This 116-nucleotide RNA sequence from Sinocyclocheilus rhinocerous belongs to the Rfam family "U5 spliceosomal RNA". U5 RNA is a component of both types of known spliceosome. The precise function of this molecule is unknown, though it is known that the 5' loop is required for splice site selection and p220 binding, and that both the 3' stem-loop and the Sm site are important for Sm protein binding and cap methylation. Rfam links the family to the GO terms U5 snRNP and spliceosomal tri-snRNP complex assembly. Rfam 15.1 lists 28,527 matches to the family in 2,489 species. It is annotated as a spliceosomal small nuclear RNA.
RNA sequence: AGCUCGAGUUUCUCUUCAUUAUUGCAUAAAUCUUUCGCCUUUUACUAAAGAUUUCCGUGGAGGGGAGCUUUUUGCGAGUGACCUGUAUUUUUGGAGGCUCUGAUCACAGCAGAGCU
Numbered sequence: 001a002g003c004u005c006g007a008g009u010u011u012c013u014c015u016u017c018a019u020u021a022u023u024g025c026a027u028a029a030a031u032c033u034u035u036c037g038c039c040u041u042u043u044a045c046u047a048a049a050g051a052u053u054u055c056c057g058u059g060g061a062g063g064g065g066a067g068c069u070u071u072u073u074g075c076g077a078g079u080g081a082c083c084u085g086u087a088u089u090u091u092u093g094g095a096g097g098c099u100c101u102g103a104u105c106a107c108a109g110c111a112g113a114g115c116u
Base pairs, nucleotide, nucleotide: 003078004077005076006075008068009067010066011065012064013063014062015061016060017059018058028054029053030052031051032050033049034048035047095116097115098114099113100112101111102110
Taxonomically the source falls in Sinocyclocheilus (Eukaryota, Craniata, Clupeocephala, Cyprinoidei).